[Rfam]
RNA sequence: CCGGGUUGAGGUAGUAGGUUGUAUGGUUUAGAGUUACACCCUGGGAGUUAACUGUACAACCUUCUAGCUUUCCUUG
Numbered sequence: 001c002c003g004g005g006u007u008g009a010g011g012u013a014g015u016a017g018g019u020u021g022u023a024u025g026g027u028u029u030a031g032a033g034u035u036a037c038a039c040c041c042u043g044g045g046a047g048u049u050a051a052c053u054g055u056a057c058a059a060c061c062u063u064c065u066a067g068c069u070u071u072c073c074u075u076g
Stems, first nucleotide, its partner, number of pairs: 001076001003074003008070003012066003016062012031041001033039002
Annotation
let-7 microRNA precursor family: a 76-nucleotide sequence. The family has 64 seed sequences and 8,694 matches in Rfam 15.1. This family represents the microRNAs (miRNA) let-7 and mir-98. let-7 was identified from a study of developmental timing in C. elegans, and was later shown to be part of a much larger class of non-coding RNAs termed miRNAs. The family's consensus secondary structure was predicted with RNAalifold. A reference for the family is Rougvie (2001), "Control of developmental timing in animals", Nat Rev Genet.